[Rfam]
RNA sequence: AAAGGAUCACACGACUGGCGGAAGUGGAAUUGACCACAAGGGAGUGUGAUUUAUAAGUAAUGCCGACCGCCUGGGCACUACUA
Numbered sequence: 001a002a003a004g005g006a007u008c009a010c011a012c013g014a015c016u017g018g019c020g021g022a023a024g025u026g027g028a029a030u031u032g033a034c035c036a037c038a039a040g041g042g043a044g045u046g047u048g049a050u051u052u053a054u055a056a057g058u059a060a061u062g063c064c065g066a067c068c069g070c071c072u073g074g075g076c077a078c079u080a081c082u083a
Base pairs, nucleotide, nucleotide: 004052005051006050007049008048009047010046011045012044015041016040017071018070019069020068021067024037025036026035027034061077062076063075064074
Dot-bracket structure: ...(((((((((..(([[[[[..((((......))))..))..)))))))))........((((..]]]]]..))))......
Shown here is an 83-nucleotide RNA sequence from Thermohalobacter berrensis, a member of the family "ZMP/ZTP riboswitch aptamer (pfl RNA motif)". Taxonomically the source falls in Thermohalobacter (Bacteria, Bacillota, Tissierellales, Thermohalobacteraceae). The base pairs follow the family's consensus structure, which is taken from published work.